[Rfam]
A member of the RNA family "U7 small nuclear RNA" from Copsychus sechellarum, 61 nucleotides long.
NCBI's taxonomy places the organism under Eukaryota, Chordata, Sauria, Saurischia, Copsychus.
RNA sequence: CAGUGAUUUCAGCUCUUUUAGAAUUUGUCCAGCAGGUUUCCCGCCCUUGCGGGAAGCCGCU
Number, nucleotide and partner (000 for none) at each position: 001c000002a000003g000004u000005g000006a000007u000008u000009u000010c000011a000012g000013c000014u000015c000016u000017u000018u000019u000020a000021g000022a000023a000024u000025u000026u000027g000028u000029c000030c000031a000032g000033c000034a000035g058036g057037u056038u055039u054040c053041c052042c051043g050044c049045c000046c000047u000048u000049g044050c043051g042052g041053g040054a039055a038056g037057c036058c035059g000060c000061u000
Notes
The base pairs follow the family's consensus structure, which was predicted with PFOLD. Animal histone pre-mRNAs are spliced by a different mechanism than nuclear pre-mRNAs and self-splicing introns. This processing involves the U7 snRNP, which contains only one RNA species: U7. It scores 67 bits against the family's covariance model.